Rfam assigns this 83-nucleotide RNA from Capitella teleta to the family "mir-184 microRNA precursor family". For this family Rfam cites "The developmental miRNA profiles of zebrafish as determined by small RNA cloning" (Chen et al., Genes Dev, 2005). The base pairs follow the family's consensus structure, which was predicted with PFOLD. NCBI's taxonomy places the organism under Eukaryota, Metazoa, Protostomia, Capitellidae, Capitella. Rfam links the family to the GO terms RISC complex and gene silencing by miRNA.
RNA sequence: UACAUCACGUUCCCUUGUCACUUGUUCGUCCUGUUGGCUGCGUUUUCUCACUGGACGGAGAACUGAUAGGGCCCUGUGUGGAU
Dot-bracket structure: ............((((((((.((.(((..((.....................))..))).)).))))))))............